RNA sequence: UUGUGGGCUUAGCCGCGUGGUUACUUCGCUCACUCUGAACUCUCAUCGAAGAUUUCCUACCUUUAAACCACUGGCGCUAUCUUACACACUA
Number, nucleotide and partner (000 for none) at each position: 001u000002u086003g085004u084005g083006g082007g081008c000009u000010u000011a000012g075013c074014c073015g072016c000017g071018u070019g069020g068021u067022u066023a000024c000025u000026u000027c000028g000029c000030u000031c000032a000033c000034u000035c000036u000037g000038a000039a000040c000041u000042c000043u000044c000045a000046u000047c000048g000049a000050a000051g000052a000053u000054u000055u000056c000057c000058u000059a000060c000061c000062u000063u000064u000065a000066a022067a021068c020069c019070a018071c017072u015073g014074g013075c012076g000077c000078u000079a000080u000081c007082u006083u005084a004085c003086a002087c000088a000089c000090u000091a000